[Rfam]
RNA sequence: UAGGCAGGCUGGGCGAUCGCCCUGACGUAGUCGGGGAGGAAAGUCCGAGCUCCACAGGGCAGGGUGCUGGCUAACGGCCAGGCGGGGUAACCCGACAGAAAGUGCCACAGAAAAUAUACCGCCCUGAUUUAUCGGGGUAAGGUUGAAAUGGCGAGGUAAGAGCUCACCGCUCCGAUGGCGACACCGAGGCAUGGUAAACCUCACUCGGUGCAAGGCCUAAUAGGGGGACUGAGGGUGCCCGUCCCGUCCCCGGGUUGGCCGCUAGAGGCUUUGAGUAAUUGAAGUCCCAGAUAGAUGAUCGCCGUCCCCAUUCUUGGGGAUACAGGACUCGGCUUACAGGCCUGCCUAUCAG
Numbered sequence: 001u002a003g004g005c006a007g008g009c010u011g012g013g014c015g016a017u018c019g020c021c022c023u024g025a026c027g028u029a030g031u032c033g034g035g036g037a038g039g040a041a042a043g044u045c046c047g048a049g050c051u052c053c054a055c056a057g058g059g060c061a062g063g064g065u066g067c068u069g070g071c072u073a074a075c076g077g078c079c080a081g082g083c084g085g086g087g088u089a090a091c092c093c094g095a096c097a098g099a100a101a102g103u104g105c106c107a108c109a110g111a112a113a114a115u116a117u118a119c120c121g122c123c124c125u126g127a128u129u130u131a132u133c134g135g136g137g138u139a140a141g142g143u144u145g146a147a148a149u150g151g152c153g154a155g156g157u158a159a160g161a162g163c164u165c166a167c168c169g170c171u172c173c174g175a176u177g178g179c180g181a182c183a184c185c186g187a188g189g190c191a192u193g194g195u196a197a198a199c200c201u202c203a204c205u206c207g208g209u210g211c212a213a214g215g216c217c218u219a220a221u222a223g224g225g226g227g228a229c230u231g232a233g234g235g236u237g238c239c240c241g242u243c244c245c246g247u248c249c250c251c252g253g254g255u256u257g258g259c260c261g262c263u264a265g266a267g268g269c270u271u272u273g274a275g276u277a278a279u280u281g282a283a284g285u286c287c288c289a290g291a292u293a294g295a296u297g298a299u300c301g302c303c304g305u306c307c308c309c310a311u312u313c314u315u316g317g318g319g320a321u322a323c324a325g326g327a328c329u330c331g332g333c334u335u336a337c338a339g340g341c342c343u344g345c346c347u348a349u350c351a352g
Stems, first nucleotide, its partner, number of pairs: 001348010011337001012303007020036007041335003045332005050210001052208002057240004062206005067081005082096001083094004097201002102199002104195003119142002121138007150168002153165003169190001170188003174185001176183002214260004224251006233243002267286008